Description: Shown here is a 174-nucleotide RNA from Streptomyces sp. Ru73, a member of the family "Streptomyces RNA 1601". On this family, see Vockenhuber et al., RNA Biol 2011: "Deep sequencing-based identification of small non-coding RNAs in Streptomyces coelicolor". It scores 111 bits against the family's covariance model. The family's RNA type in Rfam is small RNA.
[Rfam]
Nucleotides: 174
Stems, first nucleotide, its partner, number of pairs: 004092005012027002028086005034060001037057004041052002064080002067077004100167006106159003114154003117150005123144005
Number, partner (000 for none) and nucleotide at each position: 001000u002000a003000c004092g005091a006090c007089c008088g009000g010000c011000c012027g013026g014000u015000c016000a017000c018000c019000u020000a021000c022000g023000u024000g025000u026013c027012c028086g029085g030084c031083c032082c033000a034060c035000a036000a037057g038056u039055g040054g041052a042051g043000g044000c045000u046000c047000c048000g049000a050000u051042c052041u053000c054040c055039c056038a057037c058000c059000c060034g061000a062000u063000u064080c065079c066000a067077g068076c069075c070074c071000c072000c073000a074070g075069g076068g077067c078000a079065g080064g081000c082032g083031g084030g085029u086028c087000a088008c089007g090006g091005u092004c093000a094000g095000g096000c097000u098000g099000c100167g101166c102165c103164c104163c105162g106159c107158g108157g109000u110000g111000a112000u113000u114154c115153g116152c117150g118149g119148c120147g121146g122000u123144g124143c125142u126141c127140c128000c129000c130000g131000a132000u133000c134000u135000u136000u137000u138000g139000a140127g141126g142125a143124g144123c145000c146121c147120c148119g149118c150117c151000u152116g153115u154114g155000u156000c157108c158107c159106g160000u161000c162105c163104g164103g165102g166101g167100c168000g169000u170000u171000u172000u173000u174000c
Annotation:
The pairing is the family consensus, mapped onto this sequence.